The family of this 276-nucleotide sequence from Nannospalax galili is "Mason-Pfizer monkey virus packaging signal". About the family: This family represents a group of sequences that are related to the Mason-Pfizer monkey virus (MPMV) packaging signal. The packaging signal is located in the 5' UTR and is required for specific RNA encapsidation. By type it is a cis-regulatory element. Lineage of the source: Eukaryota > Eumetazoa > Deuterostomia > Myomorpha > Nannospalax.

RNA sequence: UGGCGCCCAACGUGGGGCUGGAUACGGAGGAUCCAGUGAGGGAAAAAGAUGUCUGCAGAGGAAUGCAUUCCACAACAAUUUUCACUCUUGACUCACCACGGGAACCUGCCUCGGCUACAACCAGAAGUAAGUACAGACGUCUGAUUAUGGGACAAGAAAUAUGCAGGCAUGAACUUUAUGUUAGGCAAUUGCAAGAAGCCUUGAAGACGUGAGGAGUAAAGGUUAAAAUAGUGGAUCUAUUGAGAUUCUUUGAAUUUAUUAAAAAAAUCUGCCCUU
Numbered sequence: 001u002g003g004c005g006c007c008c009a010a011c012g013u014g015g016g017g018c019u020g021g022a023u024a025c026g027g028a029g030g031a032u033c034c035a036g037u038g039a040g041g042g043a044a045a046a047a048g049a050u051g052u053c054u055g056c057a058g059a060g061g062a063a064u065g066c067a068u069u070c071c072a073c074a075a076c077a078a079u080u081u082u083c084a085c086u087c088u089u090g091a092c093u094c095a096c097c098a099c100g101g102g103a104a105c106c107u108g109c110c111u112c113g114g115c116u117a118c119a120a121c122c123a124g125a126a127g128u129a130a131g132u133a134c135a136g137a138c139g140u141c142u143g144a145u146u147a148u149g150g151g152a153c154a155a156g157a158a159a160u161a162u163g164c165a166g167g168c169a170u171g172a173a174c175u176u177u178a179u180g181u182u183a184g185g186c187a188a189u190u191g192c193a194a195g196a197a198g199c200c201u202u203g204a205a206g207a208c209g210u211g212a213g214g215a216g217u218a219a220a221g222g223u224u225a226a227a228a229u230a231g232u233g234g235a236u237c238u239a240u241u242g243a244g245a246u247u248c249u250u251u252g253a254a255u256u257u258a259u260u261a262a263a264a265a266a267a268u269c270u271g272c273c274c275u276u
Stems, first nucleotide, its partner, number of pairs: 006030002012025003037045001084128003087124002093119001095116001097113001100110002136153001140151004160203002163199002210252008220238005261276002
Source information: It scores 144 bits against the family's covariance model.